RNA sequence: UCCUAAAGAAGUGUAGCAGCACAUCAUGAUUUGCAUGCUGUAUUAUAGAUUCUAAUCAUUUUUUGCUGCUUCAUGAUAUUGGGA
Number, nucleotide and partner (000 for none) at each position: 001u084002c083003c082004u081005a080006a079007a000008g000009a000010a000011g000012u000013g072014u000015a070016g069017c068018a067019g066020c065021a064022c000023a062024u000025c000026a059027u058028g057029a056030u055031u054032u000033g052034c000035a050036u049037g000038c000039u000040g000041u000042a000043u000044u000045a000046u000047a000048g000049a036050u035051u000052c033053u000054a031055a030056u029057c028058a027059u026060u000061u000062u023063u000064u021065g020066c019067u018068g017069c016070u015071u000072c013073a000074u000075g000076a000077u000078a000079u006080u005081g004082g003083g002084a001
This 84-nucleotide RNA from Xenopus tropicalis belongs to the Rfam family "mir-15 microRNA precursor family". Rfam 15.1 lists 2,045 matches to the family in 649 species. Taxonomically the source falls in Silurana (Eukaryota, Eumetazoa, Bilateria, Xenopus). Its Rfam clan is "mir-15 clan". Pairs were carried over by alignment from the consensus structure, which was predicted with RNAalifold. For this family Rfam cites "Frequent deletions and down-regulation of micro- RNA genes miR15 and miR16 at 13q14 in chronic lymphocytic leukemia" (Calin et al., Proc Natl Acad Sci U S A, 2002). Rfam's curators put it in the seed alignment. From the family's description: This family represents the related mir-15a and mir-15b sequences.